Rfam assigns this 81-nucleotide sequence from Gouania willdenowi to the family "mir-181 microRNA precursor family". The source organism's lineage runs through Eukaryota, Eumetazoa, Deuterostomia, Blenniimorphae and Gouania.
[Rfam]
RNA sequence: UGCCAACGGGGAACAUUCAACGCUGUCGGUGAGUUUGAGCUGCGACUAAACCAUCGACCGUUGACUGUACCCUGAGGGACA
Numbered sequence: 001u002g003c004c005a006a007c008g009g010g011g012a013a014c015a016u017u018c019a020a021c022g023c024u025g026u027c028g029g030u031g032a033g034u035u036u037g038a039g040c041u042g043c044g045a046c047u048a049a050a051c052c053a054u055c056g057a058c059c060g061u062u063g064a065c066u067g068u069a070c071c072c073u074g075a076g077g078g079a080c081a
Stems, first nucleotide, its partner, number of pairs: 001081002004077001007074002014067002017064006025058007033051004